[Rfam]
Rfam assigns this 146-nucleotide RNA sequence from Clostridium sp. DSM 8431 to the family "Molybdenum/Tungsten riboswitch aptamer (Moco RNA motif)".
For this family Rfam cites "in molybdenum cofactor and tungsten cofactor metabolism" (Regulski et al., Mol Microbiol, 2008).

RNA sequence: UAAAUAAUGUAGCUCCGAACAAAAGUAUCUAAGGGCACGUAAAGCCUAUGAUGCUGCGUCAAGACAUUUAAAAAAAUAGUCUUCAGGGUUGUAGUAGGAAACCAAUCAGCCUUCCAUGUUUGAAAAGGAGGAUUUUUAAAUUAUAU
Numbered sequence: 001u002a003a004a005u006a007a008u009g010u011a012g013c014u015c016c017g018a019a020c021a022a023a024a025g026u027a028u029c030u031a032a033g034g035g036c037a038c039g040u041a042a043a044g045c046c047u048a049u050g051a052u053g054c055u056g057c058g059u060c061a062a063g064a065c066a067u068u069u070a071a072a073a074a075a076a077u078a079g080u081c082u083u084c085a086g087g088g089u090u091g092u093a094g095u096a097g098g099a100a101a102c103c104a105a106u107c108a109g110c111c112u113u114c115c116a117u118g119u120u121u122g123a124a125a126a127g128g129a130g131g132a133u134u135u136u137u138a139a140a141u142u143a144u145a146u
Stems, first nucleotide, its partner, number of pairs: 006137001013130004019059002024055006033047004061083005086112006093106001095104001097102001113123002
Dot-bracket structure: .....(......((((..((...((((((...((((.......))))..))))))..)).(((((.............)))))..((((((.(.(.(....).).)))))))((.......))...))))......).........